[Rfam]
RNA sequence: GAGCUUGUGAUGAUUCAGGUCCGAAAGGAUCUUAUCGGAUUUCUGUGAGGCGAUUAUGUCGCCGUUGAUCGCUUAAUGUUGUUACACAUUGGAACUU
Numbered sequence: 001g002a003g004c005u006u007g008u009g010a011u012g013a014u015u016c017a018g019g020u021c022c023g024a025a026a027g028g029a030u031c032u033u034a035u036c037g038g039a040u041u042u043c044u045g046u047g048a049g050g051c052g053a054u055u056a057u058g059u060c061g062c063c064g065u066u067g068a069u070c071g072c073u074u075a076a077u078g079u080u081g082u083u084a085c086a087c088a089u090u091g092g093a094a095c096u097u
Base pairs, nucleotide, nucleotide: 001097002096003095005093
Small nucleolar RNA R11/Z151: a 97-nucleotide sequence from Leersia perrieri. The family's RNA type in Rfam is C/D-box small nucleolar RNA. The base pairs follow the family's consensus structure, which was predicted with PFOLD. Taxonomically the source falls in Leersia (Eukaryota, Streptophyta, Tracheophyta, Poaceae).